A member of the RNA family "T-box leader" from Dethiosulfatibacter aminovorans, 224 nucleotides long. The organism belongs to Dethiosulfatibacter aminovorans, within Bacteria.
[Rfam]
RNA sequence: GGAAUUACAUUGAAGAAGGAAAGUAGCAUAUAAUGAAGUUUUAAGAGAGAGCAUCAUAGCUGGGAGAUGCUUAAUGGAUUGUAUGUGAAGUGCCCUUUGGAGUAGUGCACCGAAUACAGUAGGCUGCACCGUGAUUCGCACGUUACAGCGAUACGGCAUGAAUGUGCCGGACUAAGAGGGUUUUUCCAAUUAGAGUGGAACCGCGAAUAUACUUCGUCUCUAGC
Numbered sequence: 001g002g003a004a005u006u007a008c009a010u011u012g013a014a015g016a017a018g019g020a021a022a023g024u025a026g027c028a029u030a031u032a033a034u035g036a037a038g039u040u041u042u043a044a045g046a047g048a049g050a051g052c053a054u055c056a057u058a059g060c061u062g063g064g065a066g067a068u069g070c071u072u073a074a075u076g077g078a079u080u081g082u083a084u085g086u087g088a089a090g091u092g093c094c095c096u097u098u099g100g101a102g103u104a105g106u107g108c109a110c111c112g113a114a115u116a117c118a119g120u121a122g123g124c125u126g127c128a129c130c131g132u133g134a135u136u137c138g139c140a141c142g143u144u145a146c147a148g149c150g151a152u153a154c155g156g157c158a159u160g161a162a163u164g165u166g167c168c169g170g171a172c173u174a175a176g177a178g179g180g181u182u183u184u185u186c187c188a189a190u191u192a193g194a195g196u197g198g199a200a201c202c203g204c205g206a207a208u209a210u211a212c213u214u215c216g217u218c219u220c221u222a223g224c
Stems, first nucleotide, its partner, number of pairs: 007103002015098004026086006038075003049072006106128004110123002130142003179187002192221004203217005